[Rfam]
RNA sequence: GAUGGAUCCGAUCCAAUCCAUUAAGCAAUUUUUUUACUUAUAGAUGGAUUGGAUGGAUCCAUUA
Number, nucleotide and partner (000 for none) at each position: 001g000002a000003u000004g060005g059006a058007u057008c056009c000010g000011a054012u053013c052014c051015a050016a049017u048018c047019c046020a045021u044022u043023a000024a000025g039026c000027a038028a000029u036030u000031u000032u000033u000034u000035u000036a029037c000038u027039u025040a000041u000042a000043g022044a021045u020046g019047g018048a017049u016050u015051g014052g013053a012054u011055g000056g008057a007058u006059c005060c004061a000062u000063u000064a000

Rfam assigns this 64-nucleotide RNA from Trifolium medium to the family "MIR5291 microRNA precursor family". The match comes from Rfam's covariance-model search (59 bits). Pairs were carried over by alignment from the consensus structure, which was predicted with RNAalifold.